[Rfam]
The family of this 116-nucleotide sequence from Bacteroidales bacterium CF is "FMN riboswitch aptamer (RFN element)". Rfam describes the family as follows. The RFN element is a highly conserved domain that is found frequently in the 5'-untranslated regions of prokaryotic mRNAs that encode for flavin mononucleotide (FMN) biosynthesis and transport proteins. The match comes from Rfam's covariance-model search (105 bits). The base pairs follow the family's consensus structure, which is taken from published work.
RNA sequence: CUAAAUCUUCAGGGCAGGGUGUAAUUCCCGAUCGGCGGUAUAGUCCGCGAGCCGUAAAUGGCAGAACCGUUUAAAUACGGUACCGACAGUUAAAGUCUGGAAGGAAGAAGAAUUUA
Numbered sequence: 001c002u003a004a005a006u007c008u009u010c011a012g013g014g015c016a017g018g019g020u021g022u023a024a025u026u027c028c029c030g031a032u033c034g035g036c037g038g039u040a041u042a043g044u045c046c047g048c049g050a051g052c053c054g055u056a057a058a059u060g061g062c063a064g065a066a067c068c069g070u071u072u073a074a075a076u077a078c079g080g081u082a083c084c085g086a087c088a089g090u091u092a093a094a095g096u097c098u099g100g101a102a103g104g105a106a107g108a109a110g111a112a113u114u115u116a
Base pairs, nucleotide, nucleotide: 003114004113006111007110008109009108010107017029018028019027031096032095033085034084035048036047037046038045043083044082051062052061053060066081067080068079069078070077087099088098089097